[Rfam]
RNA sequence: UACCCAUCCAGAGCGGCUGAGAGACCUGGCUCCGCGACGCCGCAGCAACCACCUUGCCCCGCGCACGCCGCGCGGGGACGGCCGGUGCUCAUGCCAGGACCGAUGGAGG
Numbered sequence: 001u002a003c004c005c006a007u008c009c010a011g012a013g014c015g016g017c018u019g020a021g022a023g024a025c026c027u028g029g030c031u032c033c034g035c036g037a038c039g040c041c042g043c044a045g046c047a048a049c050c051a052c053c054u055u056g057c058c059c060c061g062c063g064c065a066c067g068c069c070g071c072g073c074g075g076g077g078a079c080g081g082c083c084g085g086u087g088c089u090c091a092u093g094c095c096a097g098g099a100c101c102g103a104u105g106g107a108g109g
Base pairs, nucleotide, nucleotide: 001109004106005105006104007103008102013043014042015041016040017039021032022031023030026097027096028095029094044089045088046087047086049085050084052080093101